[Rfam]
RNA sequence: UACAACGAUUUUGCAGGAAGACAGCGUAAGAUGCUGAUUUUCGUUCGCGGGUAGUAUUACUCCUGAAGGAGUAACAAUUAUUGUCCCGUAUCAAACAGGCACAAAAAAAGCGCCCGCAGGCGCUUUUUUAUGAAA
Dot-bracket structure: ............................................................((......))....................................((((((((....)))))))).........
Numbered sequence: 001u002a003c004a005a006c007g008a009u010u011u012u013g014c015a016g017g018a019a020g021a022c023a024g025c026g027u028a029a030g031a032u033g034c035u036g037a038u039u040u041u042c043g044u045u046c047g048c049g050g051g052u053a054g055u056a057u058u059a060c061u062c063c064u065g066a067a068g069g070a071g072u073a074a075c076a077a078u079u080a081u082u083g084u085c086c087c088g089u090a091u092c093a094a095a096c097a098g099g100c101a102c103a104a105a106a107a108a109a110g111c112g113c114c115c116g117c118a119g120g121c122g123c124u125u126u127u128u129u130a131u132g133a134a135a
Stems, first nucleotide, its partner, number of pairs: 061070002107126008
Shown here is a 135-nucleotide RNA sequence from Citrobacter rodentium, a member of the family "Enterobacteria sRNA STnc130". The source organism's lineage runs through Bacteria, Pseudomonadati, Gammaproteobacteria, Citrobacter and Citrobacter rodentium. By type it is a small RNA. The family's consensus secondary structure was predicted with WAR.